[Rfam]
RNA: permuted transfer-messenger RNA
Organism: Mesorhizobium sp. NBSH29
RNA sequence: GGCGAUAAACUGCCGAUGUAAUAAGCUUUUCGGACCCGGGGGCGGUACCCGGCGCCUCCACCAAGAUCGGUCCUGACCGGACCGUUGUUGCUGGGGGCGAAAUAGGAUCGACGAGGGUGUAAAGAUCGGACUUUUGCUCGGCAUUGUACCACCGUUAUCGGGCUAAACUUGUAGUUGCAAAUGACAACUAUGCGGAAGCACGUCUCGCCGCUUAA
Numbered sequence: 001g002g003c004g005a006u007a008a009a010c011u012g013c014c015g016a017u018g019u020a021a022u023a024a025g026c027u028u029u030u031c032g033g034a035c036c037c038g039g040g041g042g043c044g045g046u047a048c049c050c051g052g053c054g055c056c057u058c059c060a061c062c063a064a065g066a067u068c069g070g071u072c073c074u075g076a077c078c079g080g081a082c083c084g085u086u087g088u089u090g091c092u093g094g095g096g097g098c099g100a101a102a103u104a105g106g107a108u109c110g111a112c113g114a115g116g117g118u119g120u121a122a123a124g125a126u127c128g129g130a131c132u133u134u135u136g137c138u139c140g141g142c143a144u145u146g147u148a149c150c151a152c153c154g155u156u157a158u159c160g161g162g163c164u165a166a167a168c169u170u171g172u173a174g175u176u177g178c179a180a181a182u183g184a185c186a187a188c189u190a191u192g193c194g195g196a197a198g199c200a201c202g203u204c205u206c207g208c209c210g211c212u213u214a215a
Base pairs, nucleotide, nucleotide: 001138002137003136004135005134014128015127016126017125026117027116028115030114031113032112036052037051038050039049040048053099054098055097056096057095058094059093139154140153141152
Dot-bracket structure: (((((........((((........(((.(((...(((((.......)))))(((((((.................................)))))))............)))))).......)))).....)))))(((..........))).............................................................